This 75-nucleotide RNA from Gossypium anomalum belongs to the Rfam family "Plastid-ycf2 5UTR RNA". Taxonomically the source falls in Gossypium (Eukaryota, Embryophyta, Magnoliopsida, Malvaceae). About the family: Plastid ycf2 is a non-coding RNA (ncRNA) recognised in plastids. It was found in the prime untranslated region (5UTR) of ycf2 genes, it presents a tRNA-like motif which suggests it can be involved in mRNA maturation, particularly involved in defining the precise 5' end of the transcript. By type it is a cis-regulatory element.
Nucleotides: 075
Stems, first nucleotide, its partner, number of pairs: 005073003010026005040069003044066006
Number, partner (000 for none) and nucleotide at each position: 001000a002000u003000a004000c005073a006072u007071c008000u009000a010026g011025u012024a013023g014022g015000a016000a017000u018000u019000c020000a021000a022014c023013c024012u025011a026010c027000g028000g029000a030000u031000u032000c033000a034000c035000c036000a037000a038000u039000u040069a041068u042067g043000a044066g045065u046064u047063g048062g049061g050000c051000a052000c053000u054000u055000u056000a057000a058000c059000c060000a061049u062048u063047u064046a065045g066044c067042c068041a069040u070000u071007g072006a073005u074000a075000c